[Rfam]
RNA sequence: AAUAGCCAAAAAUAGCAGCAGCAUUGAGGUUAGGACUGGUGAUCAGCCGCACGUUGUGAAUUGUGGGGUCGUAUAGGCCACCAAAUGCCAUUGCUUUAGCCACUAACAUCAGGGCACCAAUUCCCAACAGCACCAGAUGAAUGCCCAAAAUCGUCGUCAUUUUAUUGGCAUCAUCCCA
Numbered sequence: 001a002a003u004a005g006c007c008a009a010a011a012a013u014a015g016c017a018g019c020a021g022c023a024u025u026g027a028g029g030u031u032a033g034g035a036c037u038g039g040u041g042a043u044c045a046g047c048c049g050c051a052c053g054u055u056g057u058g059a060a061u062u063g064u065g066g067g068g069u070c071g072u073a074u075a076g077g078c079c080a081c082c083a084a085a086u087g088c089c090a091u092u093g094c095u096u097u098a099g100c101c102a103c104u105a106a107c108a109u110c111a112g113g114g115c116a117c118c119a120a121u122u123c124c125c126a127a128c129a130g131c132a133c134c135a136g137a138u139g140a141a142u143g144c145c146c147a148a149a150a151u152c153g154u155c156g157u158c159a160u161u162u163u164a165u166u167g168g169c170a171u172c173a174u175c176c177c178a
Base pairs, nucleotide, nucleotide: 136175137174138173139172140171145168146167147166148165
Overview: The family of this 178-nucleotide sequence from Elainella sp. C42_A2020_010 is "Antisense RNA which regulates isiA expression". The organism belongs to Elainella, within Bacteria. On this family, see Duhring et al., Proc Natl Acad Sci U S A 2006: "An internal antisense RNA regulates expression of the photosynthesis gene isiA". A search with the family's covariance model found it, with a score of 125 bits. The base pairs follow the family's consensus structure, which was predicted with PFOLD.